The family of this 70-nucleotide RNA sequence is "queA RNA". It is annotated as a small RNA. Rfam's curators put it in the seed alignment.

RNA sequence: UUCAUGCCGUAACAUGAAGCGAGUCGUCCUUCCCCCAGUUUACAUGGGACGGCAAACUGAGUGUGGCUAU
Numbered sequence: 001u002u003c004a005u006g007c008c009g010u011a012a013c014a015u016g017a018a019g020c021g022a023g024u025c026g027u028c029c030u031u032c033c034c035c036c037a038g039u040u041u042a043c044a045u046g047g048g049a050c051g052g053c054a055a056a057c058u059g060a061g062u063g064u065g066g067c068u069a070u
Stems, first nucleotide, its partner, number of pairs: 001018006023053007